[Rfam]
RNA sequence: GUCCCUAUAGCUCAAGGUAGAGCCUAAUGCUGUUAUCAUUAAGAUAGAUGUUCGAUUCAUCUUAGGGGCU
Dot-bracket structure: (((((((..((((......)))).(((((.......)))))....(((((.......)))))))))))).
tRNA: a 70-nucleotide sequence from Ophiocordyceps camponoti-floridani. Transfer RNA (tRNA) molecules are approximately 80 nucleotides in length. A search with the family's covariance model found it, with a score of 58 bits. By type it is a transfer RNA.